Description: A member of the RNA family "c-di-AMP riboswitch aptamer (ydaO/yuaA leader)" from Leptolyngbya sp. FACHB-321, 162 nucleotides long. The match comes from Rfam's covariance-model search (62 bits).
[Rfam]
RNA sequence: AAGUCUAUAGCGCUUAAGACAGAGUGAAGAGCGGGGGAACCAAGACCCAAGAGUAUGGGGCGCAUUUUCAAGGGCACUUUAUCUGUAUGGUAAAGGCUUUGAUGAAGGGUAUCUCUCAACCCUAGCCCGACAGCUAACCUCGUAGGCAUUGAGAGAAGACUG
Numbered sequence: 001a002a003g004u005c006u007a008u009a010g011c012g013c014u015u016a017a018g019a020c021a022g023a024g025u026g027a028a029g030a031g032c033g034g035g036g037g038a039a040c041c042a043a044g045a046c047c048c049a050a051g052a053g054u055a056u057g058g059g060g061c062g063c064a065u066u067u068u069c070a071a072g073g074g075c076a077c078u079u080u081a082u083c084u085g086u087a088u089g090g091u092a093a094a095g096g097c098u099u100u101g102a103u104g105a106a107g108g109g110u111a112u113c114u115c116u117c118a119a120c121c122c123u124a125g126c127c128c129g130a131c132a133g134c135u136a137a138c139c140u141c142g143u144a145g146g147c148a149u150u151g152a153g154a155g156a157a158g159a160c161u162g
Stems, first nucleotide, its partner, number of pairs: 012147003031143006041057002058128003066104001068102006107122004